[Rfam]
RNA sequence: AGCAUUUUGUGUUCACUGCAGACCUUGAUUUCACGUCACACCAUUAAGGCAUGCAGUGAAUGCCGAAGUGGG
Numbered sequence: 001a002g003c004a005u006u007u008u009g010u011g012u013u014c015a016c017u018g019c020a021g022a023c024c025u026u027g028a029u030u031u032c033a034c035g036u037c038a039c040a041c042c043a044u045u046a047a048g049g050c051a052u053g054c055a056g057u058g059a060a061u062g063c064c065g066a067a068g069u070g071g072g
Stems, first nucleotide, its partner, number of pairs: 003070004009063008018054003023049007
RNA: mir-124 microRNA precursor family